Small nucleolar RNA SNORD17: a 248-nucleotide RNA sequence from Chaetura pelagica. The family's consensus secondary structure was predicted with RNAalifold. The source organism's lineage runs through Eukaryota, Tetrapoda, Sauropsida, Archosauria and Chaetura. Rfam's curators write: The snoRNA HBI-43 belongs to the C/D family of snoRNAs, guiding 2'O-ribose methylation at position U3797 of the 28S rRNA. Pseudouridylation in position U3797 is predicted to be guided by the H/ACA snoRNA ACA48.

[Rfam]
RNA sequence: GUGAGGUGAUGACAAAGUUUAUCCAUUCUCUGAGUGCAGUGGUGCUGCCCCCCUGCAGCACCCUGGUUCCUGUUCUAGGGUCUGGGUGCUGUGCAGCCUCCAGACACCCUCCAAUCUCCCAGUGUUCUACUGGGGGCUGCUGUGGUGUGUGGCUGGCUGCCUGCAGGAGGGCAGUGGUGCUGGCAGGGUUGGAGCUCCUCUCUGGGGAGCUGUCUCCCCACUGAGCUGAAAGGAUCAUGUCUGAUCAC
Numbered sequence: 001g002u003g004a005g006g007u008g009a010u011g012a013c014a015a016a017g018u019u020u021a022u023c024c025a026u027u028c029u030c031u032g033a034g035u036g037c038a039g040u041g042g043u044g045c046u047g048c049c050c051c052c053c054u055g056c057a058g059c060a061c062c063c064u065g066g067u068u069c070c071u072g073u074u075c076u077a078g079g080g081u082c083u084g085g086g087u088g089c090u091g092u093g094c095a096g097c098c099u100c101c102a103g104a105c106a107c108c109c110u111c112c113a114a115u116c117u118c119c120c121a122g123u124g125u126u127c128u129a130c131u132g133g134g135g136g137c138u139g140c141u142g143u144g145g146u147g148u149g150u151g152g153c154u155g156g157c158u159g160c161c162u163g164c165a166g167g168a169g170g171g172c173a174g175u176g177g178u179g180c181u182g183g184c185a186g187g188g189u190u191g192g193a194g195c196u197c198c199u200c201u202c203u204g205g206g207g208a209g210c211u212g213u214c215u216c217c218c219c220a221c222u223g224a225g226c227u228g229a230a231a232g233g234a235u236c237a238u239g240u241c242u243g244a245u246c247a248c
Stems, first nucleotide, its partner, number of pairs: 010247003017240002020237001023233002026230003030225002034221002039184002042181001043179006049171002052167006059088005066082001068080004093160006106146002112139002115136002118134007186219002188214001190212003197207002